Shown here is a 109-nucleotide sequence from Enterococcus ratti, a member of the family "THF (Tetrahydrofolate) riboswitch aptamer". The family has 101 seed sequences and 747 matches in Rfam 15.1. Tetrahydrofolate (THF) riboswitch was first reported for Ames et al. as an RNA motif in 5' untranslated (5'-UTR)regions of folate transport and biosynthesis genes in Firmicutes genomes. Its family is annotated with tetrahydrofolate metabolic process in the Gene Ontology. The organism belongs to Enterococcus, within Bacteria. On this family, see Trausch and Batey, Chem Biol 2014: "A disconnect between high-affinity binding and efficient regulation by antifolates and purines in the tetrahydrofolate riboswitch".
[Rfam]
RNA sequence: AACAGAGUAGAAAAUAAAGCGUUAAGUGCUGGGAGGAUGGGAUGUUGCCUCUUUGACGAAGGAUCAAAGGAUUAUUGAGAUUCGCGGUUUUAUUUUCGCAUUCGCUGCA
Numbered sequence: 001a002a003c004a005g006a007g008u009a010g011a012a013a014a015u016a017a018a019g020c021g022u023u024a025a026g027u028g029c030u031g032g033g034a035g036g037a038u039g040g041g042a043u044g045u046u047g048c049c050u051c052u053u054u055g056a057c058g059a060a061g062g063a064u065c066a067a068a069g070g071a072u073u074a075u076u077g078a079g080a081u082u083c084g085c086g087g088u089u090u091u092a093u094u095u096u097c098g099c100a101u102u103c104g105c106u107g108c109a
Base pairs, nucleotide, nucleotide: 003107004106005105010097011096012095013094014093015092016091017090018089019088020086021085022084026057027056029055031053032052033051034050035049036048040103041102042101043100044099061083062082063081064080